RNA: mir-1257 microRNA precursor family
Organism: Saimiri boliviensis
RNA sequence: ACUGUGGGCCAGCUGGUGCUUGGGAGUGAAUGAUGGGUUCUGAGCCCCAUACACCCCUGCCAGCCCCUGUCAUCGCUGGCCCCAUCCUUCACCCCUGCCAUCCACACUUGCCCUGUGUCU
Numbered sequence: 001a002c003u004g005u006g007g008g009c010c011a012g013c014u015g016g017u018g019c020u021u022g023g024g025a026g027u028g029a030a031u032g033a034u035g036g037g038u039u040c041u042g043a044g045c046c047c048c049a050u051a052c053a054c055c056c057c058u059g060c061c062a063g064c065c066c067c068u069g070u071c072a073u074c075g076c077u078g079g080c081c082c083c084a085u086c087c088u089u090c091a092c093c094c095c096u097g098c099c100a101u102c103c104a105c106a107c108u109u110g111c112c113c114u115g116u117g118u119c120u
Stems, first nucleotide, its partner, number of pairs: 001118002006113004016105003021097001022095003026092005032086006042080001045078001049073002